[Rfam]
RNA sequence: UAGCCCCAGCGGCCGCAGGACGCGCGGAGCCAGGAGAGGAGCGGGACCGCUGGGCAGGAGCUGCUGUCCGCCGCGAGCCCAGACUUACAUG
Numbered sequence: 001u002a003g004c005c006c007c008a009g010c011g012g013c014c015g016c017a018g019g020a021c022g023c024g025c026g027g028a029g030c031c032a033g034g035a036g037a038g039g040a041g042c043g044g045g046a047c048c049g050c051u052g053g054g055c056a057g058g059a060g061c062u063g064c065u066g067u068c069c070g071c072c073g074c075g076a077g078c079c080c081a082g083a084c085u086u087a088c089a090u091g
Base pairs, nucleotide, nucleotide: 003050004049005045006044007043011031012030013029
About this RNA:
The family of this 91-nucleotide RNA from Sciurus carolinensis is "GRIK4 3 prime UTR element". The family's RNA type in Rfam is non-coding RNA gene.